The record is a 66-nucleotide RNA from Lactobacillus xujianguonis, which matches "emrB-Lactobacillus RNA" in Rfam. The source organism's lineage runs through Bacteria, Bacilli, Lactobacillales, Lactobacillaceae and Lactobacillus.
[Rfam]
RNA sequence: UACUCAGUAUAUACGACAGUAUACGUUUAAUAUAGUUAGUUUUUUAACUAGCUAAAGAAAGGGUAG
Dot-bracket structure: .((((.((((((......))))))........(((((((........)))))))......))))..